Rfam assigns this 87-nucleotide RNA from Gossypium mustelinum to the family "MIR7486 microRNA precursor family".
[Rfam]
RNA sequence: CUUGAGGGAGCGCUUUGCCUACUUGGACAUAAAGCGCGCCCUUAAGGGAGCGAUUUUUGUCCACGUAGGCAAAACGCUUCCUCAGUG
Number, nucleotide and partner (000 for none) at each position: 001c000002u085003u084004g083005a082006g081007g080008g079009a078010g077011c076012g075013c000014u073015u072016u071017g070018c069019c068020u067021a066022c000023u000024u063025g062026g061027a060028c059029a058030u000031a056032a055033a054034g000035c052036g051037c050038g000039c000040c047041c046042u000043u000044a000045a000046g041047g040048g000049a000050g037051c036052g035053a000054u033055u032056u031057u000058u029059g028060u027061c026062c025063a024064c000065g000066u021067a020068g019069g018070c017071a016072a015073a014074a000075c012076g011077c010078u009079u008080c007081c006082u005083c004084a003085g002086u000087g000

The source organism's lineage runs through Eukaryota, Embryophyta, Spermatophyta, Gunneridae and Gossypium. It scores 70 bits against the family's covariance model. The family's consensus secondary structure was predicted with RNAalifold. The family has 9 seed sequences and 10,132 matches in Rfam 15.1.